[Rfam]
The record is a 430-nucleotide RNA from Roseibium sp. RKSG952, which matches "Alphaproteobacteria transfer-messenger RNA" in Rfam. The family's consensus secondary structure is taken from published work. Gene Ontology term of the family: RNA catabolic process.
RNA sequence: AGUCUUUGAUUUUUUUUUAAAUUCAUGUAUAAAUCAUUCUUGUCGCUUCGGCGACUAUGACGGUAGAGUGCGUGACGUACUAGAUGUUCUGGACCCGGGGGCAGAACCCGGCGCCUCCACCAACAGCCCAUACGGUCGGGUCUCCGCGAGGAAAACGGUAGGACACCUUUCGGAAUAAAGAAUCCCGUUUGCUAAAUGACGUAUGGGUUGCUGAUGGGGGCGAAAUAGGAUCGACAGGCGUUGAAAGGUGAUGUGUGCCGUUCGGAAUGGUAUCCGCCGUUAUCGGGCCAAGCUUAGUAUCUGCAAACGAUAACUUCGCAAAGGAUUUCGCUGUCGCUGCCUGAGGGCGGUGCCGGUAGUCCGGUUUAAGUCCGCGGGAUAUAGCGCCCGUGGCGGGGUUCGAAGGCACCUGGCAACAGAAGCCCUCACU
Dot-bracket structure: .........................................(((((....)))))...(((((......((((.((........(((.(((...(((((.......)))))(((((((.................................................................................................)))))))............)))))).......)).))))...)))))[[[..(((..((..]]].....)).))).........................................................................................................((((..[[.[[[))))..........]]].]]...